[Rfam]
RNA: Bacterial RNase P class A
RNA sequence: CGGGCCGGCUAGACGGUCGCGUCAUCCGCCUUCGGGUGUGAUGCCGAGGAACGUCCGGGCUCCGCAGAGCAGGAUGGUGGGUAACACCCACCCGGGGCAACCCGCGAGACAGUGCCACAGAAAGUAGACCGCCGCCGGGCAACCGGCGGUAAGGGUGAAACGGUGGUGUAAGAGACCACCAGAGGCCAGGGUGACCUGGUCGGCUCGGUAAACCUCGUCCGGAGCAAGGUCAGACAGAACACCAUGGGGCUGCUCGUCCCGUGUUCGGGUAGACCGCUAGAGGGCUGCGGCAACGUAGUCCCGAGAGAGAUGGCCGUCACGGUCGCGCAAGCGGCCGACAGAACCCGGCGUAUCGGCCGACCCGUUCA
Dot-bracket structure: ((((.(((((((((((((.((.((((.............)))).))....[[[.[[[[[((((...[[[[.((((((((((.....)))))(((((....)))).)((...(((((............((((((((((....))))))))..)).......((((((.......)))))).(.(((((((....)))))))..)..)))..)))))))))))))...((((.....((((((...(((((.]]]]))))))))))).....))))......((((((((....))))))))..........))))))).........................]]]]]]]].).))))).))))....